Annotation: This 50-nucleotide RNA from Rubellimicrobium sp. CFH 75288 belongs to the Rfam family "SAM/SAH riboswitch aptamer". A reference for the family is Weickhmann et al. (2019), "The structure of the SAM/SAH-binding riboswitch", Nucleic Acids Res.
RNA sequence: UUCCCGUCACAACGGCUUCCUGGCGUGGCGGGUGAAAUCCCAAUGGAGCG
Numbered sequence: 001u002u003c004c005c006g007u008c009a010c011a012a013c014g015g016c017u018u019c020c021u022g023g024c025g026u027g028g029c030g031g032g033u034g035a036a037a038u039c040c041c042a043a044u045g046g047a048g049c050g
Base pairs, nucleotide, nucleotide: 004031005030006029007028008027009026010025013022014021015049016048017047019046020045
NCBI's taxonomy places the organism under Bacteria, Pseudomonadati, Pseudomonadota, Roseobacteraceae, Rubellimicrobium. The base pairs follow the family's consensus structure, which is taken from published work.